The record is a 274-nucleotide sequence from Ectothiorhodospiraceae bacterium BW-2, which matches "Group II catalytic intron D1-D4-6" in Rfam. Taxonomically the source falls in Ectothiorhodospiraceae (Bacteria, Pseudomonadati, Pseudomonadota, Chromatiales).
Nucleotides: 274
Stems, first nucleotide, its partner, number of pairs: 012036004019031004023243001025241002039122002043119004047114002049109001051107005166268001169265002172262003187259004192254001193219003198213004224253001228249006
Number, partner (000 for none) and nucleotide at each position: 001000a002000g003000a004000g005000u006000c007000c008000c009000g010000g011000c012036a013035u014034g015033g016000a017000a018000a019031g020030g021029g022028u023243u024000a025241a026240c027000c028022a029021c030020c031019c032000a033015c034014c035013a036012u037000u038000a039122c040121c041000g042000a043119g044118u045117g046116u047114u048113g049109c050000g051107c052106c053105c054104u055103u056000g057000g058000c059000g060000a061000a062000a063000c064000g065000g066000u067000g068000a069000a070000u071000u072000g073000g074000c075000a076000a077000u078000g079000a080000a081000g082000g083000c084000u085000g086000a087000g088000a089000c090000a091000u092000u093000c094000g095000u096000g097000a098000a099000c100000a101000a102000g103055a104054a105053g106052g107051g108000g109049g110000a111000a112000g113048c114047g115000u116046a117045c118044a119043c120000a121040g122039g123000g124000u125000a126000u127000g128000u129000u130000g131000c132000a133000g134000g135000c136000u137000g138000u139000u140000u141000g142000g143000a144000u145000a146000c147000g148000u149000a150000a151000g152000u153000c154000c155000u156000u157000a158000a159000a160000g161000a162000u163000g164000g165000u166268a167000u168000c169265g170264c171000g172262u173261c174260g175000a176000a177000a178000u179000g180000a181000a182000c183000a184000g185000u186000u187259c188258c189257g190256g191000c192254u193219g194218g195217c196000c197000a198213g199212c200211g201210u202000u203000g204000u205000a206000a207000c208000g209000c210201a211200c212199g213198c214000g215000a216000a217195g218194c219193c220000c221000a222000c223000g224253c225000g226000a227000a228249g229248c230247a231246g232245g233244c234000g235000c236000a237000u238000u239000g240026g241025u242000g243023a244233g245232c246231c247230u248229g249228u250000g251000g252000a253224g254192a255000a256190c257189c258188g259187g260174c261173g262172g263000a264170g265169u266000u267000c268166u269000c270000g271000a272000g273000c274000u